[Rfam]
RNA sequence: ACGAUGUUCCGCUGCAAUAGAUAAGGUUGUAAGAGCAUUUG
Numbered sequence: 001a002c003g004a005u006g007u008u009c010c011g012c013u014g015c016a017a018u019a020g021a022u023a024a025g026g027u028u029g030u031a032a033g034a035g036c037a038u039u040u041g
Stems, first nucleotide, its partner, number of pairs: 003039007013031006
Rfam assigns this 41-nucleotide sequence from Terrilactibacillus tamarindi to the family "Ribosomal protein L19 leader". NCBI's taxonomy places the organism under Bacteria, Bacillati, Caryophanales, Bacillaceae, Terrilactibacillus. This family is a putative r-protein leader autoregulatory structure found in B. subtilis and other low-GC Gram-positive bacteria. On this family, see Zengel and Lindahl, Prog Nucleic Acid Res Mol Biol 1994: "Diverse mechanisms for regulating ribosomal protein synthesis in Escherichia coli". The base pairs follow the family's consensus structure, which was predicted with CMfinder. The match comes from Rfam's covariance-model search (45 bits). It is annotated as a cis-regulatory leader.